Overview
Rfam assigns this 79-nucleotide sequence from Sesamum indicum to the family "Small nucleolar RNA Z102/R77". A reference for the family is Chen et al. (2003), "The high diversity of snoRNAs in plants: identification and comparative study of 120 snoRNA genes from Oryza sativa", Nucleic Acids Res. Its family is annotated with RNA processing and nucleolus in the Gene Ontology. Clan: SNORD44 clan. Lineage of the source: Eukaryota > Magnoliopsida > Mesangiospermae > Pentapetalae > Sesamum. The base pairs follow the family's consensus structure, which was predicted with PFOLD.
RNA sequence: GGAUGAGAUGAUGAGGAGAAAAAUAUAGUGAUUGCUGAUAUGAUGGCAAUUACUUUGUAUUAGCUCUAGCUGAUCAUUC
Numbered sequence: 001g002g003a004u005g006a007g008a009u010g011a012u013g014a015g016g017a018g019a020a021a022a023a024u025a026u027a028g029u030g031a032u033u034g035c036u037g038a039u040a041u042g043a044u045g046g047c048a049a050u051u052a053c054u055u056u057g058u059a060u061u062a063g064c065u066c067u068a069g070c071u072g073a074u075c076a077u078u079c
Stems, first nucleotide, its partner, number of pairs: 002078004030050001033048004